[Rfam]
RNA: Ruegeria cis8 sRNA
RNA sequence: ACGGCCAGAACCUUGGCGAUAUAAGGUAUCAAAGGCAGGUUCAGGAUCAGCAGGAUUACAUUGCCCAGAUACAUCGAAAUGAUCACCGCCCAGAAAAUUUCGGGCUGGUCCACCAUCAGGCGCGGCCC
Numbered sequence: 001a002c003g004g005c006c007a008g009a010a011c012c013u014u015g016g017c018g019a020u021a022u023a024a025g026g027u028a029u030c031a032a033a034g035g036c037a038g039g040u041u042c043a044g045g046a047u048c049a050g051c052a053g054g055a056u057u058a059c060a061u062u063g064c065c066c067a068g069a070u071a072c073a074u075c076g077a078a079a080u081g082a083u084c085a086c087c088g089c090c091c092a093g094a095a096a097a098u099u100u101c102g103g104g105c106u107g108g109u110c111c112a113c114c115a116u117c118a119g120g121c122g123c124g125g126c127c128c
Base pairs, nucleotide, nucleotide: 004017005016006015007014008013026128029125030124034121036119038114039113040112043109046106048104052100053099054098056097057096061093062092063091066088068086073083074082075081